[Rfam]
RNA sequence: GUCAACCACCCCGGACUGAAGUCCGAGGCUUGUAAGCCUCUAGUUGACUAGCCUUAGCUUGGAAAGGGCUACGUUAGAAGGGUCACGACACCCUGGAGUGCGAGCCCAAGCUCCAGGCACUGUCGCUGGUGGUUAAACAGUUCUGAGAGGGUAGGAACAGUGCCGUCGGCACGACAAGCCUUUCUAACAUUGGCGAUGGGUGAUCAAC
Dot-bracket structure: ((((((.(.((((.((....)).)).))((....))....).))))))..(((..(((((.....)))))..(((((((((((....((..(((((((([..[.[.[[.))))))))....)).(((((((((...((.(((((.(.....).))))).))))))))))).......)))))))))))...)))..]]].]..]....
Numbered sequence: 001g002u003c004a005a006c007c008a009c010c011c012c013g014g015a016c017u018g019a020a021g022u023c024c025g026a027g028g029c030u031u032g033u034a035a036g037c038c039u040c041u042a043g044u045u046g047a048c049u050a051g052c053c054u055u056a057g058c059u060u061g062g063a064a065a066g067g068g069c070u071a072c073g074u075u076a077g078a079a080g081g082g083u084c085a086c087g088a089c090a091c092c093c094u095g096g097a098g099u100g101c102g103a104g105c106c107c108a109a110g111c112u113c114c115a116g117g118c119a120c121u122g123u124c125g126c127u128g129g130u131g132g133u134u135a136a137a138c139a140g141u142u143c144u145g146a147g148a149g150g151g152u153a154g155g156a157a158c159a160g161u162g163c164c165g166u167c168g169g170c171a172c173g174a175c176a177a178g179c180c181u182u183u184c185u186a187a188c189a190u191u192g193g194c195g196a197u198g199g200g201u202g203a204u205c206a207a208c
Stems, first nucleotide, its partner, number of pairs: 001048006008041001010028002012025002015022002029036002051194003056070005073188011088123002092117008100204001103201001105199001107198002125170009137161002140158005146152001
A member of the RNA family "HNH endonuclease-associated RNA and ORF (HEARO) RNA" from Thermanaerosceptrum fracticalcis, 208 nucleotides long. For this family Rfam cites "Exceptional structured noncoding RNAs revealed by bacterial metagenome analysis" (Weinberg et al., Nature, 2009). The base pairs follow the family's consensus structure, which is taken from published work.